[Rfam]
RNA sequence: CUGCGCUUUUAAGGUUGAUUCUGCAUUUGAAGAGGCUAACACAGAAGGUAAAGUAAGUCUCCAUAAAACCCAGAGAGGAGAUUAUAAAACUCCUCUUUGGAUUCUGUCUGGAGUCACAGCU
Numbered sequence: 001c002u003g004c005g006c007u008u009u010u011a012a013g014g015u016u017g018a019u020u021c022u023g024c025a026u027u028u029g030a031a032g033a034g035g036c037u038a039a040c041a042c043a044g045a046a047g048g049u050a051a052a053g054u055a056a057g058u059c060u061c062c063a064u065a066a067a068a069c070c071c072a073g074a075g076a077g078g079a080g081a082u083u084a085u086a087a088a089a090c091u092c093c094u095c096u097u098u099g100g101a102u103u104c105u106g107u108c109u110g111g112a113g114u115c116a117c118a119g120c121u
Base pairs, nucleotide, nucleotide: 002050003049004048006047007046008045009044010043014040015039016038017037019035021032057115059113060112061111062110063109070100071099072098073097074096075095076094078092079091080090082089083088